[Rfam]
RNA sequence: UUGAGCCGCCGUACCGGCAGCUCUCCAGCCGCUCGAUUUUCUCGAAGUCCUGACACCACUUCCCCGGUGCCAGGGCGGAGGGGCGGAUGGGGAGCUGGCGGUACGGCGCUCGCGCACU
Numbered sequence: 001u002u003g004a005g006c007c008g009c010c011g012u013a014c015c016g017g018c019a020g021c022u023c024u025c026c027a028g029c030c031g032c033u034c035g036a037u038u039u040u041c042u043c044g045a046a047g048u049c050c051u052g053a054c055a056c057c058a059c060u061u062c063c064c065c066g067g068u069g070c071c072a073g074g075g076c077g078g079a080g081g082g083g084c085g086g087a088u089g090g091g092g093a094g095c096u097g098g099c100g101g102u103a104c105g106g107c108g109c110u111c112g113c114g115c116a117c118u
Stems, first nucleotide, its partner, number of pairs: 010105007020095002023092005029086006040078002043075001049074004054069003
This 118-nucleotide sequence from Dactylosporangium vinaceum belongs to the Rfam family "mraW RNA".
It scores 52 bits against the family's covariance model.